Nucleotides: 071
Stems, first nucleotide, its partner, number of pairs: 001070007010024003027041004047063005
Number, partner (000 for none) and nucleotide at each position: 001070g002069g003068u004067a005066u006065g007064u008000u009000a010024g011023c012022a013000a014000a015000g016000c017000g018000g019000u020000u021000a022012u023011g024010c025000a026000c027041u028040g029039g030038a031000u032000u033000g034000c035000a036000a037000a038030u039029c040028c041027a042000u043000g044000u045000a046000g047063c048062u049061u050060g051059g052000u053000u054000c055000g056000a057000c058000u059051c060050c061049g062048g063047g064007a065006c066005a067004u068003a069002c070001c071000u